This 114-nucleotide RNA sequence from Neobacillus bataviensis belongs to the Rfam family "PyrR binding site".
RNA sequence: AUUUCCUUUAAAGGUAGUCCAGAGAGGCUAAAAAGGGCGAACAUGACUAUUCAUAUAACUUAAUUGUGUAUAUAUGAAUGCCCUUUUAUCCUAUGGAUGAAAGGGCAUUUUAUU
Numbered sequence: 001a002u003u004u005c006c007u008u009u010a011a012a013g014g015u016a017g018u019c020c021a022g023a024g025a026g027g028c029u030a031a032a033a034a035g036g037g038c039g040a041a042c043a044u045g046a047c048u049a050u051u052c053a054u055a056u057a058a059c060u061u062a063a064u065u066g067u068g069u070a071u072a073u074a075u076g077a078a079u080g081c082c083c084u085u086u087u088a089u090c091c092u093a094u095g096g097a098u099g100a101a102a103g104g105g106c107a108u109u110u111u112a113u114u
Stems, first nucleotide, its partner, number of pairs: 004037006015030005048074003053069006077109014
Dot-bracket structure: ...((((((.....(((((......))))).))))))..........(((..((((((.....))))))..)))..((((((((((((((.....)))))))))))))).....
On this family, see Bonner et al., Nucleic Acids Res 2001: "Molecular recognition of pyr mRNA by the Bacillus subtilis attenuation regulatory protein PyrR". Gene Ontology terms of the family: pyrimidine nucleobase biosynthetic process and pyrimidine nucleobase transport. This family represents the PyrR binding site and terminator structure. This RNA structure is found upstream of a variety of genes involved in pyrimidine biosynthesis and transport.